The family of this 111-nucleotide sequence from Lederbergia lenta is "SAM riboswitch aptamer (S box leader)". The match comes from Rfam's covariance-model search (86 bits). Rfam describes the family as follows. The SAM riboswitch is found upstream of a number of genes which code for proteins involved in methionine or cysteine biosynthesis in Gram-positive bacteria. The SAM riboswitch acts at the level of transcription termination control. The predicted structure consists of a complex stem-loop region followed by a single stem loop terminator region. An alternative and mutually exclusive form involves bases in the 3' segment of helix 1 with those in the 5' region of helix 5 to form a structure termed the anti-terminator form. This entry represents the conserved core of the complex structure involving helices 1-4. The family's consensus secondary structure is taken from published work. The organism belongs to Lederbergia, within Bacteria.
[Rfam]
RNA sequence: AGCUUAUCAAGAGAGGCGGAGGGACUGACCCUGUGAAGCCUCAGCAACCAGCAAUGACAAAUUGUAUGGUGCUAAUUUCAGAAGAAUACUUUUGUAUUCUAUAGAUGAGUG
Numbered sequence: 001a002g003c004u005u006a007u008c009a010a011g012a013g014a015g016g017c018g019g020a021g022g023g024a025c026u027g028a029c030c031c032u033g034u035g036a037a038g039c040c041u042c043a044g045c046a047a048c049c050a051g052c053a054a055u056g057a058c059a060a061a062u063u064g065u066a067u068g069g070u071g072c073u074a075a076u077u078u079c080a081g082a083a084g085a086a087u088a089c090u091u092u093u094g095u096a097u098u099c100u101a102u103a104g105a106u107g108a109g110u111g
Stems, first nucleotide, its partner, number of pairs: 002110007013042005021031003025081004043073004048069002051065004077103001083100006